[Rfam]
A member of the RNA family "T-box leader" from Tepidanaerobacter acetatoxydans, 268 nucleotides long.
The match comes from Rfam's covariance-model search (110 bits).
RNA sequence: UUAAAAGCUGUGAAGAGAAGAGUAGCGGUUUUUUCAGACUAAAGAGAGUCGGGUAAGGUGAGAGCCGAUGUUGGAAAUUACCGGUGAAAAUCAUCUCGGAGCUGCCAGGGUGAACUUUAAAGUAAUUCUGGCCGGGUUCCCUGCAAGAGGGAAAUAGGUUACCGUUAAAAUAACCGGGUAUCGGGCGCACUGCCCCGUACCUAUUGAGAUUUAUACCGCGAGGUAUAAAUGAAUACAGGGUGGUAACGCGAGAUCCUUCGCCCCUUUU
Numbered sequence: 001u002u003a004a005a006a007g008c009u010g011u012g013a014a015g016a017g018a019a020g021a022g023u024a025g026c027g028g029u030u031u032u033u034u035c036a037g038a039c040u041a042a043a044g045a046g047a048g049u050c051g052g053g054u055a056a057g058g059u060g061a062g063a064g065c066c067g068a069u070g071u072u073g074g075a076a077a078u079u080a081c082c083g084g085u086g087a088a089a090a091u092c093a094u095c096u097c098g099g100a101g102c103u104g105c106c107a108g109g110g111u112g113a114a115c116u117u118u119a120a121a122g123u124a125a126u127u128c129u130g131g132c133c134g135g136g137u138u139c140c141c142u143g144c145a146a147g148a149g150g151g152a153a154a155u156a157g158g159u160u161a162c163c164g165u166u167a168a169a170a171u172a173a174c175c176g177g178g179u180a181u182c183g184g185g186c187g188c189a190c191u192g193c194c195c196c197g198u199a200c201c202u203a204u205u206g207a208g209a210u211u212u213a214u215a216c217c218g219c220g221a222g223g224u225a226u227a228a229a230u231g232a233a234u235a236c237a238g239g240g241u242g243g244u245a246a247c248g249c250g251a252g253a254u255c256c257u258u259c260g261c262c263c264c265u266u267u268u
Stems, first nucleotide, its partner, number of pairs: 007102002015097004025085002027082003037072003048069005105131007133164003209230007237265004248261005

A reference for the family is Grundy et al. (1994), "Interaction between the acceptor end of tRNA and the T box stimulates antitermination in the Bacillus subtilis tyrS gene: a new role for the discriminator base", J Bacteriol. The family's RNA type in Rfam is cis-regulatory leader. Pairs were carried over by alignment from the consensus structure, which is taken from published work.